[Rfam]
RNA: mir-3492 microRNA precursor family
Organism: Schistosoma margrebowiei
RNA sequence: AGUCUUCUGAGUCCGUACAGAGAUUUCGUCAGAUACUAGACCAUCAGUACUGGUGGGACUCCUAAUAUAAAUGAGACG
Numbered sequence: 001a002g003u004c005u006u007c008u009g010a011g012u013c014c015g016u017a018c019a020g021a022g023a024u025u026u027c028g029u030c031a032g033a034u035a036c037u038a039g040a041c042c043a044u045c046a047g048u049a050c051u052g053g054u055g056g057g058a059c060u061c062c063u064a065a066u067a068u069a070a071a072u073g074a075g076a077c078g
Stems, first nucleotide, its partner, number of pairs: 002077005008071001011068002016064002020061003024058007